[Rfam]
This 114-nucleotide sequence from Centaurea solstitialis belongs to the Rfam family "Small nucleolar RNA Z152/R70/R12/". By type it is a C/D-box small nucleolar RNA. Lineage of the source: Eukaryota > Tracheophyta > asterids > Asteraceae > Centaurea. Gene Ontology terms of the family: nucleolus and RNA processing.
RNA sequence: AUUGCAGUGAUGAGGUAAAGCACCGUAGGGGUGUAAUUAGGGCAGUGGACGACACGAUUGAUCUCGUGUUGCCGUGAUCCCCAAUUUAAACGACUUCUCCUUCCACUGAGCAUU
Numbered sequence: 001a002u003u004g005c006a007g008u009g010a011u012g013a014g015g016u017a018a019a020g021c022a023c024c025g026u027a028g029g030g031g032u033g034u035a036a037u038u039a040g041g042g043c044a045g046u047g048g049a050c051g052a053c054a055c056g057a058u059u060g061a062u063c064u065c066g067u068g069u070u071g072c073c074g075u076g077a078u079c080c081c082c083a084a085u086u087u088a089a090a091c092g093a094c095u096u097c098u099c100c101u102u103c104c105a106c107u108g109a110g111c112a113u114u
Base pairs, nucleotide, nucleotide: 001114003112004111005110